[Rfam]
RNA sequence: GAGUCCGUCGGGCCUAAUCCACGCAACCGCUGCGUGGAGCCGGGGACCCACUUUCCCCUGGGGCGAAUCGGCACUCCGCCGUAGGGCUGCUUCCAGGCCCGAGCCCGUCAGCUAACCCGGCAGGCCACGUGGAAGGACAGU
Numbered sequence: 001g002a003g004u005c006c007g008u009c010g011g012g013c014c015u016a017a018u019c020c021a022c023g024c025a026a027c028c029g030c031u032g033c034g035u036g037g038a039g040c041c042g043g044g045g046a047c048c049c050a051c052u053u054u055c056c057c058c059u060g061g062g063g064c065g066a067a068u069c070g071g072c073a074c075u076c077c078g079c080c081g082u083a084g085g086g087c088u089g090c091u092u093c094c095a096g097g098c099c100c101g102a103g104c105c106c107g108u109c110a111g112c113u114a115a116c117c118c119g120g121c122a123g124g125c126c127a128c129g130u131g132g133a134a135g136g137a138c139a140g141u
Stems, first nucleotide, its partner, number of pairs: 011126004018038008039121006049060002061106003069081004084100004
RNA: c-di-AMP riboswitch aptamer (ydaO/yuaA leader)
Organism: Nonomuraea cypriaca